The family of this 143-nucleotide RNA from Volucribacter psittacicida is "Molybdenum/Tungsten riboswitch aptamer (Moco RNA motif)".
RNA sequence: AUUUUUGCAUAACUCCGAGCUUGUUGACCUAAACUUUUUUAUUGAAAUAGCAUGGUUUGCAAGCCGACAAAUUUUUGUCCAAGGAUAAGAUUGGAAACGAUUUAUCCUCUCGUAUUUAGAAAGGUGUCUUAAUGCAACAUAUU
Numbered sequence: 001a002u003u004u005u006u007g008c009a010u011a012a013c014u015c016c017g018a019g020c021u022u023g024u025u026g027a028c029c030u031a032a033a034c035u036u037u038u039u040u041a042u043u044g045a046a047a048u049a050g051c052a053u054g055g056u057u058u059g060c061a062a063g064c065c066g067a068c069a070a071a072u073u074u075u076u077g078u079c080c081a082a083g084g085a086u087a088a089g090a091u092u093g094g095a096a097a098c099g100a101u102u103u104a105u106c107c108u109c110u111c112g113u114a115u116u117u118a119g120a121a122a123g124g125u126g127u128c129u130u131a132a133u134g135c136a137a138c139a140u141a142u143u
Stems, first nucleotide, its partner, number of pairs: 003137002006134001011129001012127002015124002019064006026057004034050002066079005082108006089102005109119002